[Rfam]
This 121-nucleotide RNA from Actinocrinis puniceicyclus belongs to the Rfam family "Group II catalytic intron D1-D4-2". The base pairs follow the family's consensus structure. Its family is annotated with Group II intron splicing in the Gene Ontology. Taxonomically the source falls in Actinocrinis (Bacteria, Bacillati, Actinomycetota, Catenulisporales).
RNA sequence: GAGGGUUUUGUGGCCCCUCGGAGCCGCCCGGCGGUGGGAGGCUCCAAGCCGCCCCGCACUGCGUUAGCUGAAGACUGUCGUGGCGAACGGUCGGGGAAAAGGCGCAGGUCAUGCGUCAGGC
Numbered sequence: 001g002a003g004g005g006u007u008u009u010g011u012g013g014c015c016c017c018u019c020g021g022a023g024c025c026g027c028c029c030g031g032c033g034g035u036g037g038g039a040g041g042c043u044c045c046a047a048g049c050c051g052c053c054c055c056g057c058a059c060u061g062c063g064u065u066a067g068c069u070g071a072a073g074a075c076u077g078u079c080g081u082g083g084c085g086a087a088c089g090g091u092c093g094g095g096g097a098a099a100a101g102g103c104g105c106a107g108g109u110c111a112u113g114c115g116u117c118a119g120g121c
Base pairs, nucleotide, nucleotide: 001019002018003017004016005015020045021044022043023042024041025040027038028037029036030035050120052096053095054094055093056092057090059083061081062080063079065077066076067075101117102116103115104114105113106112